[Rfam]
RNA: Group II catalytic intron D1-D4-2
RNA sequence: GAGGGGAGGUCCUUCGGCAAGGGUUGUACAGGCAAACUUGUCAAACUACCUUAAUGCUGCUGAAGUAAAGAGCUACGGUAGUGAGCGAUUAAGGAAAAGGCUAUACAAAUAGUCAAGU
Numbered sequence: 001g002a003g004g005g006g007a008g009g010u011c012c013u014u015c016g017g018c019a020a021g022g023g024u025u026g027u028a029c030a031g032g033c034a035a036a037c038u039u040g041u042c043a044a045a046c047u048a049c050c051u052u053a054a055u056g057c058u059g060c061u062g063a064a065g066u067a068a069a070g071a072g073c074u075a076c077g078g079u080a081g082u083g084a085g086c087g088a089u090u091a092a093g094g095a096a097a098a099g100g101c102u103a104u105a106c107a108a109a110u111a112g113u114c115a116a117g118u
Stems, first nucleotide, its partner, number of pairs: 001015005016042006024035004047117001049094002052091004056082002059079003064074003099114006